The family of this 179-nucleotide RNA sequence from Pseudooceanicola lipolyticus is "Ruegeria cis52 sRNA". Its family is annotated with regulation of gene expression in the Gene Ontology. A search with the family's covariance model found it, with a score of 155 bits. A reference for the family is Rivers et al. (2016), "Experimental Identification of Small Non-Coding RNAs in the Model Marine Bacterium Ruegeria pomeroyi DSS-3", Front Microbiol. The organism belongs to Pseudooceanicola, within Bacteria. Rfam classes the family as a small RNA.

RNA sequence: UGCGCAGCGCGUGUUUCAGCACGAUGUUGGAGAAUUUCACCCCCUUGAGCCGGGCGGUGCGGAUAUAUUGCGCCGUCAUCACCUCGGUCAUCGAGGCGCGGGUCAUGCGGGCGAUAUAGCCCAUGCCGUACAGCGAGAUGGUCAGCACCGGCAGGAAGAAGUUUUCGAAAUUGGCAUCC
Numbered sequence: 001u002g003c004g005c006a007g008c009g010c011g012u013g014u015u016u017c018a019g020c021a022c023g024a025u026g027u028u029g030g031a032g033a034a035u036u037u038c039a040c041c042c043c044c045u046u047g048a049g050c051c052g053g054g055c056g057g058u059g060c061g062g063a064u065a066u067a068u069u070g071c072g073c074c075g076u077c078a079u080c081a082c083c084u085c086g087g088u089c090a091u092c093g094a095g096g097c098g099c100g101g102g103u104c105a106u107g108c109g110g111g112c113g114a115u116a117u118a119g120c121c122c123a124u125g126c127c128g129u130a131c132a133g134c135g136a137g138a139u140g141g142u143c144a145g146c147a148c149c150g151g152c153a154g155g156a157a158g159a160a161g162u163u164u165u166c167g168a169a170a171u172u173g174g175c176a177u178c179c
Base pairs, nucleotide, nucleotide: 005140006139008137010135011134012133015130016128019126020125021124028123029122030121038113040111041110042109046105047104048103050101051100052099054097055075056074057073058072059071060070061069062068082096083095084094085093086092145179147177149174151172154165155164156163157162